[Rfam]
RNA sequence: UACCAAUGAUGACUUGCCAUGCUAAUACAGAGAGCAUUGCAUACCAAGUGUUGGAAUGCAUGUGUCCACUGAGUUGAAAAAAUUUUCAGUCUGAGGUUA
Number, nucleotide and partner (000 for none) at each position: 001u000002a097003c096004c095005a000006a000007u000008g000009a000010u000011g000012a000013c000014u000015u000016g000017c000018c000019a000020u000021g000022c000023u000024a000025a000026u000027a000028c000029a000030g000031a000032g000033a000034g000035c000036a000037u000038u000039g000040c000041a057042u056043a000044c054045c053046a000047a000048g000049u000050g000051u000052u000053g045054g044055a000056a042057u041058g000059c000060a000061u000062g000063u000064g000065u000066c000067c000068a000069c000070u000071g000072a000073g000074u000075u000076g000077a000078a000079a000080a000081a000082a000083u000084u000085u000086u000087c000088a000089g000090u000091c000092u000093g000094a000095g004096g003097u002098u000099a000
Overview:
Rfam assigns this 99-nucleotide sequence from Pomacea canaliculata to the family "Small nucleolar RNA U6-53/MBII-28". By type it is a C/D-box small nucleolar RNA. On this family, see Huttenhofer et al., EMBO J 2001: "RNomics: an experimental approach that identifies 201 candidates for novel, small, non-messenger RNAs in mouse".